[Rfam]
RNA sequence: AGGCAGCCCUCUUGCGAAUGAACAUGGCAGGUGUGGUGUUAUUCUGCUUGGACAUGGGGAUUCCAUUUCUCAUCAGACUUGCUGAGUUGGGUUUUUAACUAACGCCCUUCGCUGAAGCUGGUCUAGUAAGCCUAAGUACAUU
Numbered sequence: 001a002g003g004c005a006g007c008c009c010u011c012u013u014g015c016g017a018a019u020g021a022a023c024a025u026g027g028c029a030g031g032u033g034u035g036g037u038g039u040u041a042u043u044c045u046g047c048u049u050g051g052a053c054a055u056g057g058g059g060a061u062u063c064c065a066u067u068u069c070u071c072a073u074c075a076g077a078c079u080u081g082c083u084g085a086g087u088u089g090g091g092u093u094u095u096u097a098a099c100u101a102a103c104g105c106c107c108u109u110c111g112c113u114g115a116a117g118c119u120g121g122u123c124u125a126g127u128a129a130g131c132c133u134a135a136g137u138a139c140a141u142u
Base pairs, nucleotide, nucleotide: 002040003039004038005037007036008035009033011031012030013029014028015027017025063136069130070129075124076123077122078121079120081118082117083116086110